[Rfam]
Nucleotides: 154
Stems, first nucleotide, its partner, number of pairs: 003152008017029003031134002033123002035067004062121002070099002103119005125137003
Number, partner (000 for none) and nucleotide at each position: 001000g002000a003152u004151u005150g006149u007148u008147c009146u010145c011000g012000g013000g014000g015000c016000g017029g018028g019027g020000u021000g022000a023000a024000a025000u026000u027019c028018c029017c030000c031134a032133c033123c034122g035067g036066c037065g038064g039000u040000a041000a042000a043000u044000g045000c046000g047000g048000a049000g050000a051000a052000a053000u054000c055000c056000g057000c058000a059000a060000a061000a062121g063120c064038c065037c066036g067035c068000g069000a070099g071098c072000g073000c074000c075000c076000g077000g078000c079000a080000a081000c082000c083000u084000g085000u086000u087000u088000g089000c090000c091000g092000g093000g094000g095000u096000c097000a098071g099070c100000a101000g102000a103119u104118c105117c106116g107115g108000u109000g110000u111000g112000a113000u114000u115107c116106c117105g118104g119103a120063g121062c122034c123033g124000a125137c126136g127135g128000u129000g130000a131000g132000a133032g134031u135127c136126c137125g138000g139000a140000u141000g142000g143000u144000a145010g146009a147008g148007a149006g150005c151004a152003g153000a154000g
The family of this 154-nucleotide RNA from Denitrobaculum tricleocarpae is "FMN riboswitch aptamer (RFN element)". The match comes from Rfam's covariance-model search (116 bits). The organism belongs to Denitrobaculum, within Bacteria.